[Rfam]
The family of this 69-nucleotide sequence from Getseptimavirus GMA7 is "Pistol ribozyme". On this family, see Teplova et al., Angew Chem Int Ed Engl 2020: "Crucial Roles of Two Hydrated Mg(2+) Ions in Reaction Catalysis of the Pistol Ribozyme". The family's consensus secondary structure is taken from published work. Lineage of the source: Viruses > Duplodnaviria > Uroviricota > Caudoviricetes > Getseptimavirus GMA7. Rfam links the family to the GO term catalytic activity.
RNA sequence: CGUCGUUUGGGCGACGUUAAAGAGCCGUUAGGCCCAAAGCGGUGCACCUCCCCUAUUCUCGGGGUUGGG
Number, nucleotide and partner (000 for none) at each position: 001c016002g015003u014004c013005g000006u038007u037008u036009g035010g034011g033012c000013g004014a003015c002016g001017u000018u000019a000020a000021a000022g000023a000024g000025c068026c067027g066028u000029u000030a000031g000032g040033c011034c010035c009036a008037a007038a006039g000040c032041g000042g000043u000044g000045c000046a000047c063048c062049u061050c000051c000052c000053c000054u000055a000056u000057u000058c000059u000060c000061g049062g048063g047064g000065u000066u027067g026068g025069g000